[Rfam]
RNA sequence: GACCUAAACCAAGCGUUAGCUCGGCAUGGUCUCAAAUCUACAAGAAGGAACAGCUCGUCAUGAGUACUUCUUCUUGUAGUUAUUACUGGAAACGGUAGUAGGUAGCUUCGGCUAUC
Numbered sequence: 001g002a003c004c005u006a007a008a009c010c011a012a013g014c015g016u017u018a019g020c021u022c023g024g025c026a027u028g029g030u031c032u033c034a035a036a037u038c039u040a041c042a043a044g045a046a047g048g049a050a051c052a053g054c055u056c057g058u059c060a061u062g063a064g065u066a067c068u069u070c071u072u073c074u075u076g077u078a079g080u081u082a083u084u085a086c087u088g089g090a091a092a093c094g095g096u097a098g099u100a101g102g103u104a105g106c107u108u109c110g111g112c113u114a115u116c
Base pairs, nucleotide, nucleotide: 001031002030003029004028009024010023012021013020014019038079039078040077041076042075043074044073045072046071047070048069053065054064055063056062081100082099083098084097085096086095087094088093101116102115103114104113105112106111

Description
This 116-nucleotide RNA sequence belongs to the Rfam family "LOOT RNA". The family's RNA type in Rfam is small RNA. Pairs were carried over by alignment from the consensus structure, which is taken from published work.